[Rfam]
RNA sequence: AGCUAGAAACGGCAAGAUACUUGAAAGGGUAUUACGCAAAGCUACCAGUCUACGGAUUUUCUAUGACAGUGGAGCUACCUAA
Numbered sequence: 001a002g003c004u005a006g007a008a009a010c011g012g013c014a015a016g017a018u019a020c021u022u023g024a025a026a027g028g029g030u031a032u033u034a035c036g037c038a039a040a041g042c043u044a045c046c047a048g049u050c051u052a053c054g055g056a057u058u059u060u061c062u063a064u065g066a067c068a069g070u071g072g073a074g075c076u077a078c079c080u081a082a
Stems, first nucleotide, its partner, number of pairs: 012037002017032006040076004045072003048067003055061002
The family of this 82-nucleotide RNA sequence from Thalassotalea sp. PP2-459 is "c-di-GMP-I riboswitch aptamer".
Taxonomically the source falls in Thalassotalea (Bacteria, Pseudomonadota, Alteromonadales, Colwelliaceae).